[Rfam]
RNA sequence: CUGUGCAUCAAGCACAGACUUAUGCGGAAUGUAAAACCACCGCGUACCAAGUAGAACUUGGAUUAGGCUCUGACAAAAGGAGAAAACAAAUG
Numbered sequence: 001c002u003g004u005g006c007a008u009c010a011a012g013c014a015c016a017g018a019c020u021u022a023u024g025c026g027g028a029a030u031g032u033a034a035a036a037c038c039a040c041c042g043c044g045u046a047c048c049a050a051g052u053a054g055a056a057c058u059u060g061g062a063u064u065a066g067g068c069u070c071u072g073a074c075a076a077a078a079g080g081a082g083a084a085a086a087c088a089a090a091u092g
Stems, first nucleotide, its partner, number of pairs: 001017006021046007047061004
Dot-bracket structure: ((((((.....))))))...(((((((............)))))))((((.......))))...............................
Background
Shown here is a 92-nucleotide RNA, a member of the family "freshwater-2 RNA".